A member of the RNA family "U1 spliceosomal RNA" from Acer saccharum, 163 nucleotides long. It is annotated as a spliceosomal small nuclear RNA. NCBI's taxonomy places the organism under Eukaryota, Streptophytina, Magnoliopsida, eudicotyledons, Acer. It scores 110 bits against the family's covariance model.
RNA sequence: AUACUUACCUGGACGGGGUCAAUGGGCGAUCAAUAAGCCUCAUGGCAUAGGUUGGUGGCCUCCAUCGCACUGAGGAAGUGCACCCGCUUAAGGUCUCCUCAUAUGAAGGAGAGCCUACGUCAUAAUUUGUGUCAGCCGGGUCCUGCGUUCGUGCGGCCCCCCC
Number, nucleotide and partner (000 for none) at each position: 001a000002u000003a000004c000005u000006u000007a000008c000009c000010u000011g000012g121013a120014c119015g118016g048017g000018g046019u045020c044021a043022a000023u042024g041025g040026g039027c000028g000029a000030u000031c000032a000033a000034u000035a000036a000037g000038c000039c026040u025041c024042a023043u021044g020045g019046c018047a000048u016049a089050g088051g087052u000053u086054g000055g083056u082057g081058g000059c000060c078061u077062c075063c074064a000065u000066c000067g000068c000069a000070c000071u000072g000073a000074g063075g062076a000077a061078g060079u000080g000081c057082a056083c055084c000085c000086g053087c051088u050089u049090a000091a116092g115093g114094u112095c111096u110097c000098c108099u107100c000101a000102u000103a000104u000105g000106a000107a099108g098109g000110a096111g095112a094113g000114c093115c092116u091117a000118c015119g014120u013121c012122a000123u000124a000125a000126u000127u000128u000129g000130u000131g000132u000133c000134a000135g000136c000137c000138g161139g160140g159141u000142c000143c000144u155145g154146c153147g152148u000149u000150c000151g000152u147153g146154c145155g144156g000157c000158c000159c140160c139161c138162c000163c000
U1 is a small nuclear RNA (snRNA) component of the spliceosome (involved in pre-mRNA splicing).